A member of the RNA family "Rhizobiales sRNA Atu_At1" from Hyphomicrobium facile, 113 nucleotides long. On this family, see Wilms et al., RNA Biol 2012: "Deep sequencing uncovers numerous small RNAs on all four replicons of the plant pathogen Agrobacterium tumefaciens". Taxonomically the source falls in Hyphomicrobium (Bacteria, Pseudomonadati, Pseudomonadota, Hyphomicrobiales).
RNA sequence: ACGCGUUCGGUGGCAACCGGCCGCAAUAGGGAUCGAUGGACGUGGUCAUUUUGCCGGUUUCUGAUCGCGACAGCAACGCAUUGGUACGCGUAGCAAUCUAACCUAUUCCGCGC
Numbered sequence: 001a002c003g004c005g006u007u008c009g010g011u012g013g014c015a016a017c018c019g020g021c022c023g024c025a026a027u028a029g030g031g032a033u034c035g036a037u038g039g040a041c042g043u044g045g046u047c048a049u050u051u052u053g054c055c056g057g058u059u060u061c062u063g064a065u066c067g068c069g070a071c072a073g074c075a076a077c078g079c080a081u082u083g084g085u086a087c088g089c090g091u092a093g094c095a096a097u098c099u100a101a102c103c104u105a106u107u108c109c110g111c112g113c
Base pairs, nucleotide, nucleotide: 006112008110009109011023012022013021014020025107026106027105028104029103030102035098036097037096038094041069042068043067044066045065046064047063070085071084074083